[Rfam]
The record is a 72-nucleotide sequence, which matches "DUF3800-X RNA" in Rfam.
RNA sequence: UGGUGAGUAAGUCCUUCUGAAAGGAUGAUGUCCACGUAGGUGGAAUGGGAGCGAGUAGGAAAGGGUUCACCA
Numbered sequence: 001u002g003g004u005g006a007g008u009a010a011g012u013c014c015u016u017c018u019g020a021a022a023g024g025a026u027g028a029u030g031u032c033c034a035c036g037u038a039g040g041u042g043g044a045a046u047g048g049g050a051g052c053g054a055g056u057a058g059g060a061a062a063g064g065g066u067u068c069a070c071c072a
Base pairs, nucleotide, nucleotide: 001072002071003070004069005068006067012065013064014063015062016060017059018058031044032043033042034041035040
It is one of the family's seed sequences.